[Rfam]
RNA: Group II catalytic intron D1-D4-3
Organism: Phocaeicola coprocola
RNA sequence: UCCAUCGCGAGUUGGAAUCUGAAAGAAGCUGGCGGCAAACAUCUGGUCUGACGAACAGAAACCUCAUAUAAGGCAUAUGACCGUGGGUAAGGUUGCGAAACAAACUAAAGCCCUAUAGCUAUUCGGGACGGUUAGUGUAAAUGGAGCAGACAUAAGAUUGAAAGUUAAUACC
Dot-bracket structure: ((((.(....).))))...........(.((...((....((((.(((((...........(.((((.....(((...((((((((((..((((........))))...))))..............))))))..)))..)))).))))))...)))).....))...)).)